[Rfam]
Nucleotides: 147
Base pairs, nucleotide, nucleotide: 011131012130013129014128018028019027020026029126030125031124032123033122034121039067068111069110070109076086077085078084079083089105090104091103092102
Number, partner (000 for none) and nucleotide at each position: 001000a002000u003000u004000u005000c006000c007000a008000a009000a010000u011131c012130g013129c014128u015000g016000a017000a018028a019027c020026u021000u022000g023000c024000a025000a026020a027019g028018u029126a030125c031124g032123g033122g034121g035000g036000a037000a038000c039067c040000g041000u042000u043000c044000a045000a046000g047000c048000g049000g050000a051000u052000u053000g054000c055000c056000g057000c058000a059000g060000c061000a062000a063000u064000c065000c066000a067039g068111g069110g070109g071000u072000g073000a074000a075000u076086c077085c078084u079083u080000u081000c082000c083079a084078a085077g086076g087000u088000a089105g090104g091103g092102c093000u094000a095000c096000u097000c098000a099000a100000g101000g102092g103091c104090c105089c106000g107000a108000a109070u110069c111068c112000g113000a114000c115000a116000g117000c118000u119000a120000a121034c122033u123032c124031c125030g126029u127000a128014a129013g130012c131011g132000u133000u134000a135000u136000u137000u138000g139000a140000g141000a142000a143000g144000g145000a146000a147000g
The record is a 147-nucleotide sequence from Paenibacillus zeisoli, which matches "c-di-AMP riboswitch aptamer (ydaO/yuaA leader)" in Rfam. The pairing is the family consensus, mapped onto this sequence. Lineage of the source: Bacteria > Bacillota > Bacilli > Caryophanales > Paenibacillus.